Source information:
Shown here is a 114-nucleotide RNA from Erwinia sp. 198, a member of the family "RtT RNA". On this family, see Bosl and Kersten, Nucleic Acids Res 1991: "A novel RNA product of the tyrT operon of Escherichia coli". Its family is annotated with cellular response to amino acid starvation in the Gene Ontology. A search with the family's covariance model found it, with a score of 69 bits. Lineage of the source: Bacteria > Pseudomonadati > Pseudomonadota > Erwiniaceae > Erwinia. This family represents a bacterial cis-regulatory element known as RtT RNA. The exact function of RtT is unknown although it is thought that it may be involved in changing the cellular response in relation to amino acid starvation.
RNA sequence: UGUCUCUGUGAUUUUCAGAGGAUGAGAACCUCCGAAGGAGGUUUGCGCCGAGCGCAGCGAGACAACGUUGCUUCAGCAACGGCCCGCAGGGGAAUCAUCCUCUCUCGCCGACCA
Numbered sequence: 001u002g003u004c005u006c007u008g009u010g011a012u013u014u015u016c017a018g019a020g021g022a023u024g025a026g027a028a029c030c031u032c033c034g035a036a037g038g039a040g041g042u043u044u045g046c047g048c049c050g051a052g053c054g055c056a057g058c059g060a061g062a063c064a065a066c067g068u069u070g071c072u073u074c075a076g077c078a079a080c081g082g083c084c085c086g087c088a089g090g091g092g093a094a095u096c097a098u099c100c101u102c103u104c105u106c107g108c109c110g111a112c113c114a
Base pairs, nucleotide, nucleotide: 017103018102019101020100021099023097042088044086045085049059050058066081067080068079069078070077071076